[Rfam]
RNA sequence: GAAUGUAAAAGGCAAACCAAGGGUAACCUUGGGACGCAAAGCUAUAGGGUCCUAAAAUUGGAUAGCCAGUUGUCAUU
Numbered sequence: 001g002a003a004u005g006u007a008a009a010a011g012g013c014a015a016a017c018c019a020a021g022g023g024u025a026a027c028c029u030u031g032g033g034a035c036g037c038a039a040a041g042c043u044a045u046a047g048g049g050u051c052c053u054a055a056a057a058u059u060g061g062a063u064a065g066c067c068a069g070u071u072g073u074c075a076u077u
Base pairs, nucleotide, nucleotide: 012037013036017032018031019030020029021028022027040071041070042069043068047067048066049063050062051061052060054058
RNA: c-di-GMP-I riboswitch aptamer